[Rfam]
RNA sequence: CUCUUAUCCAGAGCUGGCGGAGGGAAAUUUGGCCCGAUGAAGCCCAGCAACCGACCGUAAUAUCGUUGUGAGACGAGGCGCAGUUAAAUCGCGCCAGAGGGCACGGUGCUAAUUCCAUUCAGAGAGAAUUCUUUCUGAGAGAUAAGAG
Numbered sequence: 001c002u003c004u005u006a007u008c009c010a011g012a013g014c015u016g017g018c019g020g021a022g023g024g025a026a027a028u029u030u031g032g033c034c035c036g037a038u039g040a041a042g043c044c045c046a047g048c049a050a051c052c053g054a055c056c057g058u059a060a061u062a063u064c065g066u067u068g069u070g071a072g073a074c075g076a077g078g079c080g081c082a083g084u085u086a087a088a089u090c091g092c093g094c095c096a097g098a099g100g101g102c103a104c105g106g107u108g109c110u111a112a113u114u115c116c117a118u119u120c121a122g123a124g125a126g127a128a129u130u131c132u133u134u135c136u137g138a139g140a141g142a143u144a145a146g147a148g
Stems, first nucleotide, its partner, number of pairs: 001148008013045001016044003022035003031116002046110004051106002053102001055100002114140001120137006
A member of the RNA family "SAM riboswitch aptamer (S box leader)" from Bacillus mesophilum, 148 nucleotides long. Rfam links the family to the GO term regulation of gene expression.